Shown here is a 166-nucleotide part of an RNA from Plenodomus tracheiphilus, a member of the family "Eukaryotic large subunit ribosomal RNA". The match comes from Rfam's covariance-model search (1744 bits). Lineage of the source: Eukaryota > Fungi > Dothideomycetes > Pleosporomycetidae > Plenodomus tracheiphilus.
[Rfam]
RNA sequence: AAGAUAAUUAGCUUAUAGUAGCUAAGUAUUUAUAAUAUUAUUACUUUUUAAUCCUUUUAUAUUUUCUCUUUCUAUUCUACUAAAGUAGAAUUUAGUAAGUAUUAGAUUAUUUACUUACUAAUAGAGAAUAUAAGCUAGAUUUAGAUAAUUAAAAGAUAGGUUAGUU
Numbered sequence: 001a002a003g004a005u006a007a008u009u010a011g012c013u014u015a016u017a018g019u020a021g022c023u024a025a026g027u028a029u030u031u032a033u034a035a036u037a038u039u040a041u042u043a044c045u046u047u048u049u050a051a052u053c054c055u056u057u058u059a060u061a062u063u064u065u066c067u068c069u070u071u072c073u074a075u076u077c078u079a080c081u082a083a084a085g086u087a088g089a090a091u092u093u094a095g096u097a098a099g100u101a102u103u104a105g106a107u108u109a110u111u112u113a114c115u116u117a118c119u120a121a122u123a124g125a126g127a128a129u130a131u132a133a134g135c136u137a138g139a140u141u142u143a144g145a146u147a148a149u150u151a152a153a154a155g156a157u158a159g160g161u162u163a164g165u166u
Base pairs, nucleotide, nucleotide: 011052013050015049017045018044019043020042021041026036027035063138066134067133069127070126071125072124073123076101079096080095081094082093083092084091103117104116105115107113144162145161146160148157149156150155